This 61-nucleotide sequence from Chelydra serpentina belongs to the Rfam family "U7 small nuclear RNA". Rfam describes the family as follows. Animal histone pre-mRNAs are spliced by a different mechanism than nuclear pre-mRNAs and self-splicing introns. This processing involves the U7 snRNP, which contains only one RNA species: U7. The 5' end of U7 RNA is thought to base-pair to a conserved spacer element downstream of the cleavage site in histone pre-mRNA. This family contains a number of annotated U7 pseudogenes. A search with the family's covariance model found it, with a score of 36 bits. NCBI's taxonomy places the organism under Eukaryota, Metazoa, Gnathostomata, Americhelydia, Chelydra.

RNA sequence: UAUAACUGAAACUCUGUAGUAUUUGUUUAGUAGGGUUUCUUGUUUCUGCAGGAGAUCCUCA
Numbered sequence: 001u002a003u004a005a006c007u008g009a010a011a012c013u014c015u016g017u018a019g020u021a022u023u024u025g026u027u028u029a030g031u032a033g034g035g036u037u038u039c040u041u042g043u044u045u046c047u048g049c050a051g052g053a054g055a056u057c058c059u060c061a
Stems, first nucleotide, its partner, number of pairs: 033058011